Annotation: A member of the RNA family "Small nucleolar RNA SNORA9" from Castor canadensis, 134 nucleotides long. Rfam's curators write: ACA9 is a member of the H/ACA class of snoRNA that guide the sites of modification of uridines to pseudouridines. Lineage of the source: Eukaryota > Metazoa > Sarcopterygii > Euarchontoglires > Castor. A search with the family's covariance model found it, with a score of 104 bits. Gene Ontology terms of the family: RNA processing and nucleolus. By type it is an H/ACA-box small nucleolar RNA.
Nucleotides: 134
Stems, first nucleotide, its partner, number of pairs: 003059006018043003023037005070127005085113006094106003
Number, partner (000 for none) and nucleotide at each position: 001000u002000u003059g004058c005057a006056a007055g008054c009000c010000u011000u012000c013000c014000a015000g016000c017000a018043u019042g020041c021000u022000u023037g024036a025035g026034u027033u028000u029000a030000g031000g032000u033027g034026a035025c036024u037023c038000a039000g040000u041020g042019c043018a044000u045000u046000c047000c048000u049000u050000c051000a052000c053000u054008g055007c056006u057005u058004g059003u060000g061000a062000g063000a064000g065000u066000a067000u068000u069000c070127u071126g072125a073124a074123a075000u076000g077000g078000u079000u080000u081000g082000a083000g084000c085113c086112u087111a088110u089109g090108c091000u092000c093000u094106c095105u096104g097000c098000c099000u100000u101000c102000u103000u104096c105095a106094g107000a108090g109089c110088a111087u112086g113085g114000u115000c116000a117000u118000a119000g120000a121000c122000a123074u124073u125072u126071c127070a128000a129000a130000c131000a132000g133000u134000u